[Rfam]
RNA sequence: AACUUUAAACUAUAUAGCACUGAACCCAGUGUGCGAAAGCGAAAGCCAAGACCAUGGCUCUGGGAUAGGUCUGAAUGAUGUGGCUCAGCUUGAAGGAUACUUCAAGUCAACCAUUGGCUAUACUAUAUAUUGAAGUGUAUAGACAGCUUCUUCGCUCAAAACGGAGGUGGGAGUAUCAAGGAUCUAGUGCUAGGUACUAUGAGGAUACAGCACAACAUAGGCGUGCCAAUCGUAAUUGAAAGGUAAUGUGAAUAGCAUUGCCCUAGAAUCCUAAAACCUAGUGGCGUCGAAAACCACGUAGUUAGUAGGAAAUUCGAAUCAAGGUGGCAGAACACAAGAAAACGUAUGCAGAAAUACAUACGAAAUAAAUCGUCAGAAAGUUGGUGUAAGUAGCCAAAGCGUGUUCAGUUCUAAACUAGACUGGAAAGAUCCGCACAAGUAGAAUGCGAAAAACUCUAUUUUUGACUGAAUGGUUGGUGAACAUGGCAGGUAUCAACCCUGUUACAGCUUGGAUCCCUUCGGGGAUUGGCAAUGAUAGUCGGAGAACGUACAACUCCAGGCUCAGAUCAUUGUUCUGUAUGGCUCAAUCUGUAGUAGUAUUGCGAGUAAGGGGAAGCCCUCCGUGCUGUAUAGUUUUAAG
Numbered sequence: 001a002a003c004u005u006u007a008a009a010c011u012a013u014a015u016a017g018c019a020c021u022g023a024a025c026c027c028a029g030u031g032u033g034c035g036a037a038a039g040c041g042a043a044a045g046c047c048a049a050g051a052c053c054a055u056g057g058c059u060c061u062g063g064g065a066u067a068g069g070u071c072u073g074a075a076u077g078a079u080g081u082g083g084c085u086c087a088g089c090u091u092g093a094a095g096g097a098u099a100c101u102u103c104a105a106g107u108c109a110a111c112c113a114u115u116g117g118c119u120a121u122a123c124u125a126u127a128u129a130u131u132g133a134a135g136u137g138u139a140u141a142g143a144c145a146g147c148u149u150c151u152u153c154g155c156u157c158a159a160a161a162c163g164g165a166g167g168u169g170g171g172a173g174u175a176u177c178a179a180g181g182a183u184c185u186a187g188u189g190c191u192a193g194g195u196a197c198u199a200u201g202a203g204g205a206u207a208c209a210g211c212a213c214a215a216c217a218u219a220g221g222c223g224u225g226c227c228a229a230u231c232g233u234a235a236u237u238g239a240a241a242g243g244u245a246a247u248g249u250g251a252a253u254a255g256c257a258u259u260g261c262c263c264u265a266g267a268a269u270c271c272u273a274a275a276a277c278c279u280a281g282u283g284g285c286g287u288c289g290a291a292a293a294c295c296a297c298g299u300a301g302u303u304a305g306u307a308g309g310a311a312a313u314u315c316g317a318a319u320c321a322a323g324g325u326g327g328c329a330g331a332a333c334a335c336a337a338g339a340a341a342a343c344g345u346a347u348g349c350a351g352a353a354a355u356a357c358a359u360a361c362g363a364a365a366u367a368a369a370u371c372g373u374c375a376g377a378a379a380g381u382u383g384g385u386g387u388a389a390g391u392a393g394c395c396a397a398a399g400c401g402u403g404u405u406c407a408g409u410u411c412u413a414a415a416c417u418a419g420a421c422u423g424g425a426a427a428g429a430u431c432c433g434c435a436c437a438a439g440u441a442g443a444a445u446g447c448g449a450a451a452a453a454c455u456c457u458a459u460u461u462u463u464g465a466c467u468g469a470a471u472g473g474u475u476g477g478u479g480a481a482c483a484u485g486g487c488a489g490g491u492a493u494c495a496a497c498c499c500u501g502u503u504a505c506a507g508c509u510u511g512g513a514u515c516c517c518u519u520c521g522g523g524g525a526u527u528g529g530c531a532a533u534g535a536u537a538g539u540c541g542g543a544g545a546a547c548g549u550a551c552a553a554c555u556c557c558a559g560g561c562u563c564a565g566a567u568c569a570u571u572g573u574u575c576u577g578u579a580u581g582g583c584u585c586a587a588u589c590u591g592u593a594g595u596a597g598u599a600u601u602g603c604g605a606g607u608a609a610g611g612g613g614a615a616g617c618c619c620u621c622c623g624u625g626c627u628g629u630a631u632a633g634u635u636u637u638a639a640g
Stems, first nucleotide, its partner, number of pairs: 007637003011633001017627001021623002025064005044059005066186006078114003081110001083108001085106001090105006116148004121143001123142008151171005193621001194601001198597001204590001210584001213383004218376001220374004227327001229325003245259004269310005278301003281297003287317004331405005344361005387483001393478005466565003489500002504578003507526001514524003528575002532571001537567001538562001540559001541557001543555002609620004
The family of this 640-nucleotide sequence is "ROOL RNA". Rfam's curators put it in the seed alignment. About the family: Firmicutes, Fusobacteria (1 example), Tenericutes (1 example).